[Rfam]
The family of this 107-nucleotide RNA sequence from Nephila pilipes is "Small nucleolar RNA snoR97". Gene Ontology terms of the family: RNA processing and nucleolus. For this family Rfam cites "Experimental RNomics: identification of 140 candidates for small non-messenger RNAs in the plant Arabidopsis thaliana" (Marker et al., Curr Biol, 2002). The family's consensus secondary structure was predicted with WAR. A search with the family's covariance model found it, with a score of 43 bits.
RNA sequence: AAGAACUCAAGUUAUUUGAGGAAAAAAACUUGAGAAUUUGGUGUUUGUAUUUACUUCAAUCUCUCUCUUCUUAAAGAGAGAUUGAAGUAAAUAUAAACACCAAAUGG
Numbered sequence: 001a002a003g004a005a006c007u008c009a010a011g012u013u014a015u016u017u018g019a020g021g022a023a024a025a026a027a028a029c030u031u032g033a034g035a036a037u038u039u040g041g042u043g044u045u046u047g048u049a050u051u052u053a054c055u056u057c058a059a060u061c062u063c064u065c066u067c068u069u070c071u072u073a074a075a076g077a078g079a080g081a082u083u084g085a086a087g088u089a090a091a092u093a094u095a096a097a098c099a100c101c102a103a104a105u106g107g
Stems, first nucleotide, its partner, number of pairs: 040101007053088005060081004

By type it is an H/ACA-box small nucleolar RNA.